[Rfam]
The record is a 141-nucleotide RNA from Scaptodrosophila lebanonensis, which matches "Small nucleolar RNA psi18S-1377" in Rfam.
The base pairs follow the family's consensus structure, which was predicted with RNAalifold.
Its family is annotated with nucleolus and RNA processing in the Gene Ontology.
The match comes from Rfam's covariance-model search (72 bits).
The source organism's lineage runs through Eukaryota, Metazoa, Schizophora, Drosophilidae and Scaptodrosophila.
Rfam's curators write: psi18S-1377 is a member of the H/ACA class of snoRNA. This family is responsible for guiding the modification of uridines 1377 and 1279 to pseudouridine in Drosophila 18S rRNA.
RNA sequence: CCGUUCUCGUGUUAUUUGUUGAAUUAUUUUUCGAGGUUCAAUGAUUGUCAAGAAGGCAAAUUGAAUUUCAAGUCAGUUUCACUCCAUAAUGUUGAACCUCAAUAUCACGAGCUACGACAUUACUAAUUGCUGUGUACAUUG
Dot-bracket structure: .(.((((..((....(((((((...............)))))))....)))))).)...............................(((((..(.(.............).)...)))))....................